Rfam assigns this 84-nucleotide sequence from Triplophysa rosa to the family "Small nucleolar RNA MBII-202".
The base pairs follow the family's consensus structure, which was predicted with PFOLD.
It scores 68 bits against the family's covariance model.
On this family, see Huttenhofer et al., EMBO J 2001: "RNomics: an experimental approach that identifies 201 candidates for novel, small, non-messenger RNAs in mouse".
Rfam classes the family as a C/D-box small nucleolar RNA.
RNA sequence: UGAUGAAAAUUUCUCCGGAAUCUCUGUACAACCUUGAUGAUUGCCAUUGAACCCUUUUCCAGCUGAUGACUGCAUAGUAUUAGC
Numbered sequence: 001u002g003a004u005g006a007a008a009a010u011u012u013c014u015c016c017g018g019a020a021u022c023u024c025u026g027u028a029c030a031a032c033c034u035u036g037a038u039g040a041u042u043g044c045c046a047u048u049g050a051a052c053c054c055u056u057u058u059c060c061a062g063c064u065g066a067u068g069a070c071u072g073c074a075u076a077g078u079a080u081u082a083g084c
Stems, first nucleotide, its partner, number of pairs: 002084001004082003